[Rfam]
RNA sequence: CCGCAGGCGUCCAGCAUGGGGGGGCCUGACGUGGCCCCCGCCAUUCCUGCAACGCCUGCCAGAGCAGCCCCGGGAUGGUUUGAGGCCCUUCCCUGCCAUUCUGGGGGAGGGUUAUAGAAAUCCCGGACACCC
Numbered sequence: 001c002c003g004c005a006g007g008c009g010u011c012c013a014g015c016a017u018g019g020g021g022g023g024g025c026c027u028g029a030c031g032u033g034g035c036c037c038c039c040g041c042c043a044u045u046c047c048u049g050c051a052a053c054g055c056c057u058g059c060c061a062g063a064g065c066a067g068c069c070c071c072g073g074g075a076u077g078g079u080u081u082g083a084g085g086c087c088c089u090u091c092c093c094u095g096c097c098a099u100u101c102u103g104g105g106g107g108a109g110g111g112u113u114a115u116a117g118a119a120a121u122c123c124c125g126g127a128c129a130c131c132c
Stems, first nucleotide, its partner, number of pairs: 003059006017043003022037005071125005086111006093104003
Rfam assigns this 132-nucleotide sequence from Columba livia to the family "Small nucleolar RNA SNORA9". Gene Ontology terms of the family: nucleolus and RNA processing. It is annotated as an H/ACA-box small nucleolar RNA. Rfam describes the family as follows. ACA9 is a member of the H/ACA class of snoRNA that guide the sites of modification of uridines to pseudouridines.